About this RNA:
The record is a 68-nucleotide RNA from Phyllostomus discolor, which matches "mir-1180 microRNA precursor family" in Rfam. Taxonomically the source falls in Phyllostomus (Eukaryota, Eumetazoa, Laurasiatheria, Phyllostominae). On this family, see Brameier, BMC Res Notes 2010: "Genome-wide comparative analysis of microRNAs in three non-human primates". The base pairs follow the family's consensus structure, which was predicted with RNAalifold. Gene Ontology terms of the family: RISC complex and miRNA-mediated post-transcriptional gene silencing. It scores 49 bits against the family's covariance model.

RNA sequence: GCUACCUGACCCACCCAGCUGGGACUAGUGCCCCAUGUUUGUUUCCAGCUCAGUGGGUGUGUCAGAGA
Numbered sequence: 001g002c003u004a005c006c007u008g009a010c011c012c013a014c015c016c017a018g019c020u021g022g023g024a025c026u027a028g029u030g031c032c033c034c035a036u037g038u039u040u041g042u043u044u045c046c047a048g049c050u051c052a053g054u055g056g057g058u059g060u061g062u063c064a065g066a067g068a
Stems, first nucleotide, its partner, number of pairs: 002065002006061001009058006018049007026041003031037001